This 141-nucleotide RNA from Phenylobacterium soli belongs to the Rfam family "Molybdenum/Tungsten riboswitch aptamer (Moco RNA motif)".

RNA sequence: CCCGUCAGUUCGCUCCGAGCCUCGCCGCCUAAAGCGCCCUCCGCGCCAGGGCGAUGCGGCCGAGGCCCGCCAGGGCCAAGGGUGCGGGUGGAAACGCCCUCGCCUCCCGCGCUUGGAAAGGGGCCAAGUUUGUCGCGUCUC
Dot-bracket structure: ..((.(.....(((((..(((.((.((((....(((.......)))...)))).)).)))...(((((....)))))..(((((.(((((....))))).)))))((.......))...))))).......).))......
Numbered sequence: 001c002c003c004g005u006c007a008g009u010u011c012g013c014u015c016c017g018a019g020c021c022u023c024g025c026c027g028c029c030u031a032a033a034g035c036g037c038c039c040u041c042c043g044c045g046c047c048a049g050g051g052c053g054a055u056g057c058g059g060c061c062g063a064g065g066c067c068c069g070c071c072a073g074g075g076c077c078a079a080g081g082g083u084g085c086g087g088g089u090g091g092a093a094a095c096g097c098c099c100u101c102g103c104c105u106c107c108c109g110c111g112c113u114u115g116g117a118a119a120g121g122g123g124c125c126a127a128g129u130u131u132g133u134c135g136c137g138u139c140u141c
Stems, first nucleotide, its partner, number of pairs: 003135002006132001012124005019060003023056002026053004034046003064077005080105005086099005106116002

The family's consensus secondary structure is taken from published work.